This 173-nucleotide RNA sequence from Lichenicoccus roseus belongs to the Rfam family "FMN riboswitch aptamer (RFN element)".
RNA sequence: AGACGUUCUCAGGGCGGGGUGAAAUUCCCCACCGGCGGUGAUUAUGUCCGGCUCCCGGCUUCGGCCUGGAACCGGCCGUUUCAGCCCGCGAGCGCCUGCCAAUUUCGGCAGGGUCAAGCAGACCCGGUGUGAUUCCGGGGCCGACGGUAUAGUCCGGAUGGGAGAGAACGCGG
Numbered sequence: 001a002g003a004c005g006u007u008c009u010c011a012g013g014g015c016g017g018g019g020u021g022a023a024a025u026u027c028c029c030c031a032c033c034g035g036c037g038g039u040g041a042u043u044a045u046g047u048c049c050g051g052c053u054c055c056c057g058g059c060u061u062c063g064g065c066c067u068g069g070a071a072c073c074g075g076c077c078g079u080u081u082c083a084g085c086c087c088g089c090g091a092g093c094g095c096c097u098g099c100c101a102a103u104u105u106c107g108g109c110a111g112g113g114u115c116a117a118g119c120a121g122a123c124c125c126g127g128u129g130u131g132a133u134u135c136c137g138g139g140g141c142c143g144a145c146g147g148u149a150u151a152g153u154c155c156g157g158a159u160g161g162g163a164g165a166g167a168a169c170g171c172g173g
Stems, first nucleotide, its partner, number of pairs: 004170007017029003031153002033143002035089004092119002123139005145156003
The base pairs follow the family's consensus structure, which is taken from published work. The source organism's lineage runs through Bacteria, Pseudomonadati, Acetobacterales, Acetobacteraceae and Lichenicoccus.